The record is a 141-nucleotide RNA sequence from Schnuerera ultunensis, which matches "Ribosomal protein L10 leader" in Rfam. This family is a putative r-protein leader autoregulatory structure found in B. subtilis and other low-GC Gram-positive bacteria. The source organism's lineage runs through Bacteria, Tissierellia, Tissierellales, Tepidimicrobiaceae and Schnuerera ultunensis. The family's consensus secondary structure was predicted with CMfinder. It is annotated as a cis-regulatory leader. The literature on the family includes a 1994 paper in Prog Nucleic Acid Res Mol Biol by Zengel and Lindahl, "Diverse mechanisms for regulating ribosomal protein synthesis in Escherichia coli". It scores 80 bits against the family's covariance model.
Nucleotides: 141
Base pairs, nucleotide, nucleotide: 028059029058030057031056032055033054034044035043036042101126102125103124104123105122106121107120108119109118110117
Number, partner (000 for none) and nucleotide at each position: 001000c002000g003000u004000u005000a006000a007000a008000u009000a010000a011000a012000u013000a014000g015000g016000c017000u018000a019000c020000c021000g022000u023000a024000g025000a026000c027000a028059g029058u030057a031056g032055g033054a034044a035043c036042c037000c038000a039000a040000u041000g042036g043035g044034u045000u046000u047000a048000a049000a050000a051000a052000u053000c054033u055032c056031c057030u058029a059028c060000c061000g062000a063000g064000g065000u066000g067000a068000g069000a070000g071000u072000g073000g074000a075000a076000a077000c078000u079000a080000a081000u082000c083000a084000u085000a086000u087000u088000a089000u090000a091000u092000a093000g094000a095000g096000a097000u098000u099000a100000g101126g102125g103124u104123c105122u106121c107120u108119c109118c110117g111000u112000g113000u114000c115000u116000g117110c118109g119108g120107a121106g122105a123104g124103a125102c126101c127000u128000u129000u130000a131000u132000u133000u134000g135000u136000u137000u138000a139000g140000c141000c